A member of the RNA family "Small nucleolar RNA SNORA26" from Macaca mulatta, 131 nucleotides long.
Its Rfam clan is "SNORA27 clan".
The family's consensus secondary structure was predicted with RNAalifold.
Rfam links the family to the GO terms nucleolus and RNA processing.
The snoRNA HBI-6 belong to the H/ACA family of snoRNAs, guiding the pseudouridylation of position U4522 if the 28S rRNA. HBI-6 is the human orthologue of mouse MBI-6 snoRNA.
Rfam classes the family as an H/ACA-box small nucleolar RNA.
RNA sequence: GUGCCCUUUUAAGGUAGACACAGUUUUUUAAGCGGCUAGCACAGAAGGGUAAAGUAAGUCUCCAUAAAACCCGGAGAACAGACAGAAGAGACUGUGAAACUCCUCUUUGGAUGCCAUCUGGAGCCAUAGCA
Numbered sequence: 001g002u003g004c005c006c007u008u009u010u011a012a013g014g015u016a017g018a019c020a021c022a023g024u025u026u027u028u029u030a031a032g033c034g035g036c037u038a039g040c041a042c043a044g045a046a047g048g049g050u051a052a053a054g055u056a057a058g059u060c061u062c063c064a065u066a067a068a069a070c071c072c073g074g075a076g077a078a079c080a081g082a083c084a085g086a087a088g089a090g091a092c093u094g095u096g097a098a099a100c101u102c103c104u105c106u107u108u109g110g111a112u113g114c115c116a117u118c119u120g121g122a123g124c125c126a127u128a129g130c131a
Base pairs, nucleotide, nucleotide: 002051003050004049005048006047007046008045009044010043014040015039017037019035021032058125060123061122062121063120064119071110072109073108074107075106076105077104088102089101090100093098
Record summary: A reference for the family is Huttenhofer et al. (2001), "RNomics: an experimental approach that identifies 201 candidates for novel, small, non-messenger RNAs in mouse", EMBO J.